[Rfam]
RNA sequence: AGGUCGGCUUAGCCGAGUGGGUACUUCAUGAGAUUGAAAUGUUUAUAAGCUUGAAGUUCCCUUUCAAACGCUUUCUCACCCACUGGCGCAACCCGACUUUUUU
Numbered sequence: 001a002g003g004u005c006g007g008c009u010u011a012g013c014c015g016a017g018u019g020g021g022u023a024c025u026u027c028a029u030g031a032g033a034u035u036g037a038a039a040u041g042u043u044u045a046u047a048a049g050c051u052u053g054a055a056g057u058u059c060c061c062u063u064u065c066a067a068a069c070g071c072u073u074u075c076u077c078a079c080c081c082a083c084u085g086g087c088g089c090a091a092c093c094c095g096a097c098u099u100u101u102u103u
Stems, first nucleotide, its partner, number of pairs: 002098006012087004017083004025067002028064001
The family of this 103-nucleotide RNA from Dimorphilus gyrociliatus is "Vault RNA". Rfam describes the family as follows. This family of RNAs are found as part of the enigmatic vault ribonucleoprotein complex. Lineage of the source: Eukaryota > Opisthokonta > Protostomia > Lophotrochozoa > Dimorphilus. Rfam classes the family as a non-coding RNA gene.